[Rfam]
A member of the RNA family "SAM-I/IV (S-adenosyl methionine) riboswitch aptamer" from Maritimibacter fusiformis, 107 nucleotides long. The family has 417 seed sequences and 567 matches in Rfam 15.1. For this family Rfam cites "The aptamer core of SAM-IV riboswitches mimics the ligand-binding site of SAM-I riboswitches" (Weinberg et al., RNA, 2008). The base pairs follow the family's consensus structure, which is taken from published work.
RNA sequence: CCCCAGCAUCUUGAGUGGGGCUGACGCCCUCGCCAACCUGCCGUGACCCGGCAAGGUGGUUCCCUGAAAAGGGGAUGCGGCCAGUGGUGGCAACCAAAGGGUCGUAG
Numbered sequence: 001c002c003c004c005a006g007c008a009u010c011u012u013g014a015g016u017g018g019g020g021c022u023g024a025c026g027c028c029c030u031c032g033c034c035a036a037c038c039u040g041c042c043g044u045g046a047c048c049c050g051g052c053a054a055g056g057u058g059g060u061u062c063c064c065u066g067a068a069a070a071g072g073g074g075a076u077g078c079g080g081c082c083a084g085u086g087g088u089g090g091c092a093a094c095c096a097a098a099g100g101g102u103c104g105u106a107g
Base pairs, nucleotide, nucleotide: 006078007077008076009075010074015031017030018029019028020027021026032060033059034058037056038055039054040052041051042050045103046102047101048100049099080091081090082089083088
Overview: Taxonomically the source falls in Maritimibacter (Bacteria, Pseudomonadota, Alphaproteobacteria, Roseobacteraceae).